Record summary:
c-di-AMP riboswitch aptamer (ydaO/yuaA leader): a 187-nucleotide RNA sequence from Arthrobacter subterraneus. It scores 64 bits against the family's covariance model. The organism belongs to Arthrobacter, within Bacteria.
RNA sequence: CCCUGUCAGCAGCCCGGCCCCGUUCUUCUUCAAAGACAGGGGCGGAGAACCCAAUACCAGGCAGCGUGUCUGCCUUGGGGUGAAGCCUGCAUACCUCGUCCCGCCGCCGCGGUCACUUCGAGGUCAGGCCGAGUCAACUCUUGCUCGAACCCGACAGCUAACUUCGCCGGCGUAAAAGAGAGGCACC
Numbered sequence: 001c002c003c004u005g006u007c008a009g010c011a012g013c014c015c016g017g018c019c020c021c022g023u024u025c026u027u028c029u030u031c032a033a034a035g036a037c038a039g040g041g042g043c044g045g046a047g048a049a050c051c052c053a054a055u056a057c058c059a060g061g062c063a064g065c066g067u068g069u070c071u072g073c074c075u076u077g078g079g080g081u082g083a084a085g086c087c088u089g090c091a092u093a094c095c096u097c098g099u100c101c102c103g104c105c106g107c108c109g110c111g112g113u114c115a116c117u118u119c120g121a122g123g124u125c126a127g128g129c130c131g132a133g134u135c136a137a138c139u140c141u142u143g144c145u146c147g148a149a150c151c152c153g154a155c156a157g158c159u160a161a162c163u164u165c166g167c168c169g170g171c172g173u174a175a176a177a178g179a180g181a182g183g184c185a186c187c
Base pairs, nucleotide, nucleotide: 001041002040003039004038005037006036007035042167043166044165045164046163047162052077053076078152079151080150086128087127088126089125131146132145133144134143